[Rfam]
RNA sequence: AUGCCGUGAUGAGCCGAAUUCAACACAUCAUUCUUAUUGUGAAGUGAAGAAACUUUACCACUGAGCAUG
Numbered sequence: 001a002u003g004c005c006g007u008g009a010u011g012a013g014c015c016g017a018a019u020u021c022a023a024c025a026c027a028u029c030a031u032u033c034u035u036a037u038u039g040u041g042a043a044g045u046g047a048a049g050a051a052a053c054u055u056u057a058c059c060a061c062u063g064a065g066c067a068u069g
Stems, first nucleotide, its partner, number of pairs: 001068004
Rfam assigns this 69-nucleotide sequence from Ameiurus melas to the family "Small nucleolar RNA SNORD63".
Taxonomically the source falls in Ameiurus (Eukaryota, Chordata, Vertebrata, Actinopteri).
Rfam's curators write: snoRNA U63 is found in both humans and mice.